Rfam assigns this 79-nucleotide RNA sequence from Anguilla anguilla to the family "mir-130 microRNA precursor family". Rfam links the family to the GO terms miRNA-mediated post-transcriptional gene silencing and RISC complex. On this family, see Lagos-Quintana et al., Curr Biol 2002: "Identification of tissue-specific microRNAs from mouse".
[Rfam]
RNA sequence: UGUUGUCCGUUGCCCUUUUUCUCUUGUACUACUGGGAAAUGAGAUGAGCAGUGCAAUAUUAAAAGGGCAUUGGGUGACA
Numbered sequence: 001u002g003u004u005g006u007c008c009g010u011u012g013c014c015c016u017u018u019u020u021c022u023c024u025u026g027u028a029c030u031a032c033u034g035g036g037a038a039a040u041g042a043g044a045u046g047a048g049c050a051g052u053g054c055a056a057u058a059u060u061a062a063a064a065g066g067g068c069a070u071u072g073g074g075u076g077a078c079a
Base pairs, nucleotide, nucleotide: 001079002078003077005075006074007073008072009071012068013067014066015065016064017063018062019061022058024056025055026054027053028052029051030050
Dot-bracket structure: (((.(((((..((((((((..(.(((((((...................))))))).)..))))))))..))))).)))